[Rfam]
RNA sequence: UGCGCAGCGCAUGGACGAGAACGAUCCGGCCGAAGCCGAGCCCCUUGAGCCGCGCGGUGCGGAUAUAUUGCGCGGUCAUGACCUCGGCCAUGGAGGCGCGUGUCAUGCGCGCGAUAUAUCCCAUUCCGAAGAGCGAGAUCGUCAGGACCGGAAGGAAGAAAUUCUCGAAGGUCGCGUUC
Numbered sequence: 001u002g003c004g005c006a007g008c009g010c011a012u013g014g015a016c017g018a019g020a021a022c023g024a025u026c027c028g029g030c031c032g033a034a035g036c037c038g039a040g041c042c043c044c045u046u047g048a049g050c051c052g053c054g055c056g057g058u059g060c061g062g063a064u065a066u067a068u069u070g071c072g073c074g075g076u077c078a079u080g081a082c083c084u085c086g087g088c089c090a091u092g093g094a095g096g097c098g099c100g101u102g103u104c105a106u107g108c109g110c111g112c113g114a115u116a117u118a119u120c121c122c123a124u125u126c127c128g129a130a131g132a133g134c135g136a137g138a139u140c141g142u143c144a145g146g147a148c149c150g151g152a153a154g155g156a157a158g159a160a161a162u163u164c165u166c167g168a169a170g171g172u173c174g175c176g177u178u179c
Stems, first nucleotide, its partner, number of pairs: 006139001008137001010135001012133001016128002019126003029122001037113001040110002046105003051100004055075001057073006082096004145179003149174003154165004
Shown here is a 179-nucleotide sequence from Profundibacterium mesophilum, a member of the family "Ruegeria cis52 sRNA". NCBI's taxonomy places the organism under Bacteria, Alphaproteobacteria, Rhodobacterales, Profundibacterium, Profundibacterium mesophilum. The base pairs follow the family's consensus structure, which was predicted with RNAfold. Rfam links the family to the GO term regulation of gene expression. Rfam classes the family as a small RNA.